[Rfam]
RNA sequence: UCCCAAUGAGGAAACGCUCACACGUCUACUGCCUGUCCUGUCCCAGAGCUGCAAAGCUGAAUCCGCUGGGCUGCUGGGGGAAAAGAGGAGACCUGUUCCAGAACGAACUGUCUGAGGGAC
Numbered sequence: 001u002c003c004c005a006a007u008g009a010g011g012a013a014a015c016g017c018u019c020a021c022a023c024g025u026c027u028a029c030u031g032c033c034u035g036u037c038c039u040g041u042c043c044c045a046g047a048g049c050u051g052c053a054a055a056g057c058u059g060a061a062u063c064c065g066c067u068g069g070g071c072u073g074c075u076g077g078g079g080g081a082a083a084a085g086a087g088g089a090g091a092c093c094u095g096u097u098c099c100a101g102a103a104c105g106a107a108c109u110g111u112c113u114g115a116g117g118g119a120c
Stems, first nucleotide, its partner, number of pairs: 001119004